[Rfam]
RNA sequence: AGCUUUGUGCAGUGGCAGUAUCAUCGUAGCCAAUGAGGUUUAUCUGAGGCGCGAUUAUUGCUAAUUGAAAACUUCCCAAUACCUCGUGGUGACGACUUGCAAUAUAGUUGGCAUUGGUGAUUUUUGACAGUCUCUACGGAGA
Numbered sequence: 001a002g003c004u005u006u007g008u009g010c011a012g013u014g015g016c017a018g019u020a021u022c023a024u025c026g027u028a029g030c031c032a033a034u035g036a037g038g039u040u041u042a043u044c045u046g047a048g049g050c051g052c053g054a055u056u057a058u059u060g061c062u063a064a065u066u067g068a069a070a071a072c073u074u075c076c077c078a079a080u081a082c083c084u085c086g087u088g089g090u091g092a093c094g095a096c097u098u099g100c101a102a103u104a105u106a107g108u109u110g111g112c113a114u115u116g117g118u119g120a121u122u123u124u125u126g127a128c129a130g131u132c133u134c135u136a137c138g139g140a141g142a
Stems, first nucleotide, its partner, number of pairs: 023055005029050003037045002086118002089114003093110005131142004